This 394-nucleotide RNA sequence from Lutibacter sp. B1 belongs to the Rfam family "transfer-messenger RNA".
Its family is annotated with RNA catabolic process in the Gene Ontology.
Lineage of the source: Bacteria > Pseudomonadati > Bacteroidota > Flavobacteriales > Lutibacter.
About the family: Bacterial tmRNA, also known as 10Sa RNA or SsrA, is named for its dual tRNA and mRNA-like properties.

[Rfam]
Nucleotides: 394
Base pairs, nucleotide, nucleotide: 001390002389003388004387005386006385007384019363021360022359023358024357025356030353031352032351033350034349035348036347037346038345039344043337044336045335046334047333048068049067050066051065052064055083056082057081058080059079060078112141113140114139116137117136118135119134174216175215176214177213178212179211184205186202187201189199192230193229194228195227196226197225234260235259236258237257238256239255240254241253242252245274246273247272248271249270277313278312279310280309281308282307283306284305285304288301289300290299292329293328294327295326296325297324298323367383368382369381370380371379
Number, partner (000 for none) and nucleotide at each position: 001390g002389g003388g004387g005386a006385c007384g008000a009000c010000u011000g012000g013000u014000u015000u016000u017000g018000a019363c020000u021360g022359c023358a024357a025356g026000g027000u028000c029000a030353a031352u032351u033350a034349a035348a036347a037346u038345a039344u040000a041000a042000g043337c044336a045335u046334g047333c048068c049067g050066a051065g052064u053000a054000a055083u056082g057081a058080a059079a060078u061000a062000g063000c064052a065051c066050u067049c068048g069000u070000a071000a072000a073000u074000c075000u076000c077000a078060a079059u080058u081057u082056c083055a084000a085000a086000a087000c088000c089000a090000u091000a092000a093000a094000c095000g096000g097000c098000g099000a100000a101000g102000a103000u104000a105000a106000c107000u108000a109000c110000g111000c112141u113140u114139u115000a116137g117136c118135u119134g120000c121000u122000u123000a124000a125000u126000c127000u128000g129000a130000a131000u132000c133000a134119c135118a136117g137116u138000a139114a140113g141112a142000u143000g144000a145000g146000c147000c148000u149000u150000g151000u152000c153000g154000u155000a156000c157000u158000a159000g160000g161000u162000a163000c164000g165000a166000a167000a168000g169000c170000u171000a172000a173000a174216u175215g176214u177213c178212u179211c180000u181000u182000g183000a184205a185000a186202g187201c188000c189199u190000u191000g192230g193229u194228u195227a196226g197225c198000g199189g200000c201187g202186u203000u204000c205184u206000a207000c208000a209000u210000a211179g212178a213177g214176g215175c216174a217000u218000c219000g220000u221000a222000a223000a224000a225197g226196u227195u228194a229193a230192c231000a232000u233000a234260g235259a236258a237257a238256u239255a240254a241253u242252a243000g244000u245274g246273u247272u248271u249270c250000g251000a252242u253241a254240u255239u256238a257237u258236u259235u260234u261000g262000a263000a264000a265000c266000u267000u268000a269000a270249g271248a272247a273246a274245c275000u276000a277313a278312g279310c280309u281308u282307a283306a284305a285304g286000u287000a288301g289300g290299u291000a292329g293328u294327u295326u296325u297324u298323a299290a300289u301288c302000a303000g304285c305284u306283u307282u308281a309280a310279g311000a312278c313277u314000a315000a316000a317000a318000u319000u320000a321000a322000u323298u324297a325296a326295a327294a328293a329292c330000u331000a332000a333047g334046c335045a336044u337043g338000u339000a340000g341000a342000a343000a344039g345038u346037a347036u348035u349034u350033u351032g352031g353030u354000u355000g356025c357024u358023u359022g360021u361000u362000u363019g364000g365000a366000c367383c368382c369381g370380g371379g372000u373000u374000c375000g376000a377000u378000u379371c380370c381369c382368g383367g384007c385006g386005u387004c388003u389002c390001c391000a392000c393000u394000u